[Rfam]
RNA sequence: GACAACCCCAUGGGAGAAUCCGGCCGCGCAGGCUGCCGGUGCCGAAGGAGCAACCGCCCCGGUAAACUCUCAGGCAAAAGGACCGUGGGGCGUCU
Number, nucleotide and partner (000 for none) at each position: 001g000002a000003c000004a000005a000006c090007c089008c088009c087010a086011u085012g084013g083014g000015a000016g000017a000018a000019u000020c039021c038022g037023g036024c000025c000026g000027c000028g000029c000030a000031g000032g000033c000034u000035g000036c023037c022038g021039g020040u000041g075042c074043c073044g071045a070046a000047g000048g069049a068050g067051c000052a000053a000054c062055c061056g000057c000058c000059c000060c000061g055062g054063u000064a000065a000066a000067c050068u049069c048070u045071c044072a000073g043074g042075c041076a000077a000078a000079a000080g000081g000082a000083c013084c012085g011086u010087g009088g008089g007090g006091c000092g000093u000094c000095u000
RNA: Glycine riboswitch aptamer
Organism: Pseudoruegeria aquimaris